[Rfam]
RNA sequence: UGUCUCAAGUUUGAGGCUAUAGCAGAAGUGCUCAUGGUAUAGCCCUGUCAGAUUCUAACAAAUCUGUGAGAUCCACU
Numbered sequence: 001u002g003u004c005u006c007a008a009g010u011u012u013g014a015g016g017c018u019a020u021a022g023c024a025g026a027a028g029u030g031c032u033c034a035u036g037g038u039a040u041a042g043c044c045c046u047g048u049c050a051g052a053u054u055c056u057a058a059c060a061a062a063u064c065u066g067u068g069a070g071a072u073c074c075a076c077u
Base pairs, nucleotide, nucleotide: 013045015044016043017042018041021077022076025073026072028040029039030038049066050065051064052063053062054061
A member of the RNA family "Mammalian CPEB3 ribozyme" from Crocodylus porosus, 77 nucleotides long.
Lineage of the source: Eukaryota > Sarcopterygii > Amniota > Sauropsida > Crocodylus.